The record is a 108-nucleotide RNA sequence from Phyllobacterium zundukense, which matches "Rhizobiales sRNA Atu_At1" in Rfam.
Pairs were carried over by alignment from the consensus structure, which was predicted with CMfinder.
A reference for the family is Wilms et al. (2012), "Deep sequencing uncovers numerous small RNAs on all four replicons of the plant pathogen Agrobacterium tumefaciens", RNA Biol.
The match comes from Rfam's covariance-model search (104 bits).
Rfam classes the family as a small RNA.
RNA sequence: GUGAGAGCGGUGUUAACCGGACGCGACAGAGAUGAUGAAUGCAGGGGUUUUUCCGGUUUCUUCCUGCAGCCAACGAAUUGGCAGGCGAGCAUCCCACCUGUCCGGCUC
Numbered sequence: 001g002u003g004a005g006a007g008c009g010g011u012g013u014u015a016a017c018c019g020g021a022c023g024c025g026a027c028a029g030a031g032a033u034g035a036u037g038a039a040u041g042c043a044g045g046g047g048u049u050u051u052u053c054c055g056g057u058u059u060c061u062u063c064c065u066g067c068a069g070c071c072a073a074c075g076a077a078u079u080g081g082c083a084g085g086c087g088a089g090c091a092u093c094c095c096a097c098c099u100g101u102c103c104g105g106c107u108c
Stems, first nucleotide, its partner, number of pairs: 006107003011023004025102005034093004040068007069082003